RNA: Purine riboswitch aptamer
Organism: Neobacillus massiliamazoniensis
RNA sequence: UAAUAAAUGAUGUUUCACCCUCGUAUAUCAAUGGGAAUAUGGCCCAUAAGUUUCUACCCAAUGACCGUAAAUUUUUGGACUAUGAGGGAAAGUCAAUAUGUU
Numbered sequence: 001u002a003a004u005a006a007a008u009g010a011u012g013u014u015u016c017a018c019c020c021u022c023g024u025a026u027a028u029c030a031a032u033g034g035g036a037a038u039a040u041g042g043c044c045c046a047u048a049a050g051u052u053u054c055u056a057c058c059c060a061a062u063g064a065c066c067g068u069a070a071a072u073u074u075u076u077g078g079a080c081u082a083u084g085a086g087g088g089a090a091a092g093u094c095a096a097u098a099u100g101u102u
Stems, first nucleotide, its partner, number of pairs: 018088008031047005058078004063073002